Shown here is a 69-nucleotide sequence from Trypanosoma vivax, a member of the family "Trypanosomatid snoRNA TB11Cs4H1". The base pairs follow the family's consensus structure, which was predicted with WAR. NCBI's taxonomy places the organism under Eukaryota, Discoba, Kinetoplastea, Trypanosoma, Trypanosoma vivax.
[Rfam]
RNA sequence: GCAUCUUGCCCUGUCUGGCCGUGCGUCGGUGACCCCAAUGACUGUGCGUGCCCGAAAGCGCAAGAGAGA
Numbered sequence: 001g002c003a004u005c006u007u008g009c010c011c012u013g014u015c016u017g018g019c020c021g022u023g024c025g026u027c028g029g030u031g032a033c034c035c036c037a038a039u040g041a042c043u044g045u046g047c048g049u050g051c052c053c054g055a056a057a058g059c060g061c062a063a064g065a066g067a068g069a
Base pairs, nucleotide, nucleotide: 004065005064006063007062008061009060017052018051019050025042026041027040